A member of the RNA family "PreQ1 (pre queuosine) riboswitch aptamer" from Neisseria sp. oral taxon 014, 45 nucleotides long.
[Rfam]
RNA sequence: CGCAUCGUGGUUCGAAAUCCUCCCACAUUAAAAAACUAAGGAAAU
Numbered sequence: 001c002g003c004a005u006c007g008u009g010g011u012u013c014g015a016a017a018u019c020c021u022c023c024c025a026c027a028u029u030a031a032a033a034a035a036c037u038a039a040g041g042a043a044a045u
Stems, first nucleotide, its partner, number of pairs: 007026004016037001

It scores 51 bits against the family's covariance model. This family is a bacterial riboswitch that binds to the metabolite preQ1, an intermediate in the biosynthesis of the modified nucleoside queuosine from GTP. One example of this riboswitch is located in the leader of the Bacillus subtilis ykvJKLM (queCDEF) operon which encodes four genes necessary for queuosine production. The source organism's lineage runs through Bacteria, Pseudomonadati, Pseudomonadota, Betaproteobacteria and Neisseria sp. oral taxon 014. The pairing is the family consensus, mapped onto this sequence.